[Rfam]
Record summary
The family of this 164-nucleotide sequence from Enterococcus pallens is "Listeria sRNA rli28". Pairs were carried over by alignment from the consensus structure, which was predicted with RNAalifold.
RNA sequence: GAGGUGAUGAUCUGACUUAGCAGUGUUUAUGGCGGUGGCUGCACUUCUCAGAAAGGAGUGAUGCACUAUGUUCAUCCUAGGAAAGGGAUUUCCGCCAUGACUGUGUAUCAGGCGUUGACAUUGGCGAUAGCCUUUGCCACCUUGAUCAUCACCAUUGAUCGACA
Numbered sequence: 001g002a003g004g005u006g007a008u009g010a011u012c013u014g015a016c017u018u019a020g021c022a023g024u025g026u027u028u029a030u031g032g033c034g035g036u037g038g039c040u041g042c043a044c045u046u047c048u049c050a051g052a053a054a055g056g057a058g059u060g061a062u063g064c065a066c067u068a069u070g071u072u073c074a075u076c077c078u079a080g081g082a083a084a085g086g087g088a089u090u091u092c093c094g095c096c097a098u099g100a101c102u103g104u105g106u107a108u109c110a111g112g113c114g115u116u117g118a119c120a121u122u123g124g125c126g127a128u129a130g131c132c133u134u135u136g137c138c139a140c141c142u143u144g145a146u147c148a149u150c151a152c153c154a155u156u157g158a159u160c161g162a163c164a
Stems, first nucleotide, its partner, number of pairs: 035140005055078002058075004099119001101117001103115004145159004
It scores 46 bits against the family's covariance model. The family's RNA type in Rfam is small RNA.